[Rfam]
RNA sequence: CGGACCAUAAGGCAGUACACUGCCGAAAUCGUCUGCAAUCCGGUCAGCAUCACGCAUAUGGUGUGACGAUUCUUCAAAUGCUGCUUCGCAGCACCUCA
Numbered sequence: 001c002g003g004a005c006c007a008u009a010a011g012g013c014a015g016u017a018c019a020c021u022g023c024c025g026a027a028a029u030c031g032u033c034u035g036c037a038a039u040c041c042g043g044u045c046a047g048c049a050u051c052a053c054g055c056a057u058a059u060g061g062u063g064u065g066a067c068g069a070u071u072c073u074u075c076a077a078a079u080g081c082u083g084c085u086u087c088g089c090a091g092c093a094c095c096u097c098a
Stems, first nucleotide, its partner, number of pairs: 011024005029069005048063005079093006
The record is a 98-nucleotide sequence, which matches "DUF3577 RNA" in Rfam. The family's RNA type in Rfam is cis-regulatory element.